[Rfam]
This 152-nucleotide RNA sequence from Phormidium nigroviride belongs to the Rfam family "Guanidine-I riboswitch aptamer".
A reference for the family is Barrick et al. (2004), "New RNA motifs suggest an expanded scope for riboswitches in bacterial genetic control", Proc Natl Acad Sci U S A.
A search with the family's covariance model found it, with a score of 76 bits.
Lineage of the source: Bacteria > Bacillati > Cyanobacteriota > Oscillatoriophycideae > Phormidium nigroviride.
RNA sequence: UUUAACCGCUUCUAGGGUUCCGAUUUGAAUCAGUUUCUAACUCAGGUUAGACAGUUCAAGUGCUGGUCCGAGAGAAGCAGACUGGUUCUCCCAAGAUUUUAAAUUUAGGGAAACACUAGCCAGUUACACGGCGGGAUAAAAGCCCGGGAGAA
Numbered sequence: 001u002u003u004a005a006c007c008g009c010u011u012c013u014a015g016g017g018u019u020c021c022g023a024u025u026u027g028a029a030u031c032a033g034u035u036u037c038u039a040a041c042u043c044a045g046g047u048u049a050g051a052c053a054g055u056u057c058a059a060g061u062g063c064u065g066g067u068c069c070g071a072g073a074g075a076a077g078c079a080g081a082c083u084g085g086u087u088c089u090c091c092c093a094a095g096a097u098u099u100u101a102a103a104u105u106u107a108g109g110g111a112a113a114c115a116c117u118a119g120c121c122a123g124u125u126a127c128a129c130g131g132c133g134g135g136a137u138a139a140a141a142g143c144c145c146g147g148g149a150g151a152a
Stems, first nucleotide, its partner, number of pairs: 008078005015069002020066002022063001023061008080125008127147001129150001133145003